[Rfam]
RNA sequence: CAGCAUAUUUCCAAGGAUAUAGCUUGUUGUGGCUAUGGUAUCUCCGACUUCAUGCCAGGGUAAUUGGAAAGACUUUAACAGGAGAGAUCAACACAGUGCCUGCAGCUGCCAAUUGUUUUUCCUAUAUGU
Numbered sequence: 001c002a003g004c005a006u007a008u009u010u011c012c013a014a015g016g017a018u019a020u021a022g023c024u025u026g027u028u029g030u031g032g033c034u035a036u037g038g039u040a041u042c043u044c045c046g047a048c049u050u051c052a053u054g055c056c057a058g059g060g061u062a063a064u065u066g067g068a069a070a071g072a073c074u075u076u077a078a079c080a081g082g083a084g085a086g087a088u089c090a091a092c093a094c095a096g097u098g099c100c101u102g103c104a105g106c107u108g109c110c111a112a113u114u115g116u117u118u119u120u121c122c123u124a125u126a127u128g129u
Stems, first nucleotide, its partner, number of pairs: 011038002016033001018031004066122006081109001085101002

The record is a 129-nucleotide RNA sequence from Mus musculus, which matches "Small nucleolar RNA SNORA44" in Rfam. The family is grouped with related families in Rfam's "SNORA44 clan". Gene Ontology terms of the family: nucleolus and RNA processing. ACA44 is a member of the H/ACA class of snoRNA that guide the sites of modification of uridines to pseudouridines. Taxonomically the source falls in Mus (Eukaryota, Metazoa, Sarcopterygii, Dipnotetrapodomorpha).